c-di-AMP riboswitch aptamer (ydaO/yuaA leader): a 149-nucleotide RNA sequence from Candidatus Atribacteria bacterium MT.SAG.1. From the family's description: This family represents a conserved RNA structure found upstream of the ydaO and yuaA genes in Bacillus subtilis and related genes in other bacteria. The ydaO/yuaA element is thought to act as a genetic 'off' switch for the ydaO and yuaA genes in its native state. It is believed that the element may be triggered during osmotic shock leading to activation of ydaO, a predicted amino acid transporter gene, and members of the yuaA-yubG operon which code for KtrA and KtrB K+ transporters. Rfam links the family to the GO terms cyclic-di-AMP binding and regulation of gene expression. Taxonomically the source falls in Atribacterota (Bacteria, Pseudomonadati).
RNA sequence: GUAUUUUAAUCGCUAAGUCCCUUAAAAAAGGGAACGGGGGAACCAAGAUUUUGGGGUGAAUCUCAUUACCCUUAAUUUUAGUAAUGAGUAGAGCAAUCCUUUCAGCUCGAAUCCGUCAGCUAACCUCGUCGGCGCGGAAGGAGAUAUAA
Numbered sequence: 001g002u003a004u005u006u007u008a009a010u011c012g013c014u015a016a017g018u019c020c021c022u023u024a025a026a027a028a029a030g031g032g033a034a035c036g037g038g039g040g041a042a043c044c045a046a047g048a049u050u051u052u053g054g055g056g057u058g059a060a061u062c063u064c065a066u067u068a069c070c071c072u073u074a075a076u077u078u079u080a081g082u083a084a085u086g087a088g089u090a091g092a093g094c095a096a097u098c099c100u101u102u103c104a105g106c107u108c109g110a111a112u113c114c115g116u117c118a119g120c121u122a123a124c125c126u127c128g129u130c131g132g133c134g135c136g137g138a139a140g141g142a143g144a145u146a147u148a149a
Stems, first nucleotide, its partner, number of pairs: 011134004018033006034129006044053002054114003062088008091108004